[Rfam]
RNA sequence: CUCUCGAAAAGGCAACAACCGAAUGCGACAUCCGGUUGACGCAAAGCUCAGGGCCCAUAAUGGAAACGGCUGCCGGGUUACCGAA
Numbered sequence: 001c002u003c004u005c006g007a008a009a010a011g012g013c014a015a016c017a018a019c020c021g022a023a024u025g026c027g028a029c030a031u032c033c034g035g036u037u038g039a040c041g042c043a044a045a046g047c048u049c050a051g052g053g054c055c056c057a058u059a060a061u062g063g064a065a066a067c068g069g070c071u072g073c074c075g076g077g078u079u080a081c082c083g084a085a
Stems, first nucleotide, its partner, number of pairs: 012042002017037005045079004051074002053070003
This 85-nucleotide RNA from Marinobacterium marinum belongs to the Rfam family "c-di-GMP-I riboswitch aptamer". From the family's description: GEMM was predicted in a large-scale screen for bacterial structured RNA regulatory elements. The match comes from Rfam's covariance-model search (38 bits). The base pairs follow the family's consensus structure, which is taken from published work. The literature on the family includes a 2008 paper in Science by Sudarsan et al., "Riboswitches in Eubacteria Sense the Second Messenger Cyclic Di-GMP".